RNA sequence: GCGCUUCAGCAAACCCUUUCCUUCUAUCUCUAGUGCUGGUCAUGGGUUAAAAAGUGCUAGAGUAAUUCAGAGUGUAUCCAGACGAGUCUCCUCCUCUAUUGGAGCUUGUCUCUACAAACUUUGAAACAAUC
Numbered sequence: 001g002c003g004c005u006u007c008a009g010c011a012a013a014c015c016c017u018u019u020c021c022u023u024c025u026a027u028c029u030c031u032a033g034u035g036c037u038g039g040u041c042a043u044g045g046g047u048u049a050a051a052a053a054g055u056g057c058u059a060g061a062g063u064a065a066u067u068c069a070g071a072g073u074g075u076a077u078c079c080a081g082a083c084g085a086g087u088c089u090c091c092u093c094c095u096c097u098a099u100u101g102g103a104g105c106u107u108g109u110c111u112c113u114a115c116a117a118a119c120u121u122u123g124a125a126a127c128a129a130u131c
Stems, first nucleotide, its partner, number of pairs: 001057005013047004018042001021039002067124006080111008090102002